[Rfam]
RNA: Small nucleolar RNA snR57
Organism: Saccharomycodes ludwigii
RNA sequence: UAUUAAUAUGAUUAUAACCACAAAUAUUUAUAUAUUCUGAGGAAGUACAUGCAGGACAUAUUUUUGAAUUAGGAAUUCUUCGUUUAUGAUCAAUA
Numbered sequence: 001u002a003u004u005a006a007u008a009u010g011a012u013u014a015u016a017a018c019c020a021c022a023a024a025u026a027u028u029u030a031u032a033u034a035u036u037c038u039g040a041g042g043a044a045g046u047a048c049a050u051g052c053a054g055g056a057c058a059u060a061u062u063u064u065u066g067a068a069u070u071a072g073g074a075a076u077u078c079u080u081c082g083u084u085u086a087u088g089a090u091c092a093a094u095a
Stems, first nucleotide, its partner, number of pairs: 001095004